[Rfam]
RNA sequence: AUUUUCGGGUGAUCGCGGUUUGAUUUAUCAGGCUGAGGAAAGUCCAUGCUCGCACAGACUGAGAUGUCUGUAGUGUUCGUGCUUAGCGAAAACAUAAGCUAAGGUACUUGGAUACAUCAAAGUUGCUUAGGCGGAUUUUAUGUAUUAGAGUAACGGCAGGAAAAAUGACUAAGGUUUCGGCUAUGUCAGAGUACCCUUGAAAGUGCCACAGUGACGAAGCAAUUUUGGAAACGGAAUUGGUGGAACGCGGUAAACCCCUCGAGCGAGCAACCCAAACAAUGGUAGGGGCGCUCUUCUAAAGGAAAUGAACGAGUAGAAGAGGCAGAAUGAUUUCUGCAGAUAGAUGAUGACCAUCGAUUGUUUUUCCCUGAGAAACAGUCGAUACAGAACAUGGCUUACAGAA
Numbered sequence: 001a002u003u004u005u006c007g008g009g010u011g012a013u014c015g016c017g018g019u020u021u022g023a024u025u026u027a028u029c030a031g032g033c034u035g036a037g038g039a040a041a042g043u044c045c046a047u048g049c050u051c052g053c054a055c056a057g058a059c060u061g062a063g064a065u066g067u068c069u070g071u072a073g074u075g076u077u078c079g080u081g082c083u084u085a086g087c088g089a090a091a092a093c094a095u096a097a098g099c100u101a102a103g104g105u106a107c108u109u110g111g112a113u114a115c116a117u118c119a120a121a122g123u124u125g126c127u128u129a130g131g132c133g134g135a136u137u138u139u140a141u142g143u144a145u146u147a148g149a150g151u152a153a154c155g156g157c158a159g160g161a162a163a164a165a166u167g168a169c170u171a172a173g174g175u176u177u178c179g180g181c182u183a184u185g186u187c188a189g190a191g192u193a194c195c196c197u198u199g200a201a202a203g204u205g206c207c208a209c210a211g212u213g214a215c216g217a218a219g220c221a222a223u224u225u226u227g228g229a230a231a232c233g234g235a236a237u238u239g240g241u242g243g244a245a246c247g248c249g250g251u252a253a254a255c256c257c258c259u260c261g262a263g264c265g266a267g268c269a270a271c272c273c274a275a276a277c278a279a280u281g282g283u284a285g286g287g288g289c290g291c292u293c294u295u296c297u298a299a300a301g302g303a304a305a306u307g308a309a310c311g312a313g314u315a316g317a318a319g320a321g322g323c324a325g326a327a328u329g330a331u332u333u334c335u336g337c338a339g340a341u342a343g344a345u346g347a348u349g350a351c352c353a354u355c356g357a358u359u360g361u362u363u364u365u366c367c368c369u370g371a372g373a374a375a376c377a378g379u380c381g382a383u384a385c386a387g388a389a390c391a392u393g394g395c396u397u398a399c400a401g402a403a
Stems, first nucleotide, its partner, number of pairs: 004403003007399001008352003012348003016035006040397003044394005049267005054071006077262003081258001082103006104154001105152005155257002158197003166188004173182003203255002205251003220239008271287003291321007322337006354382012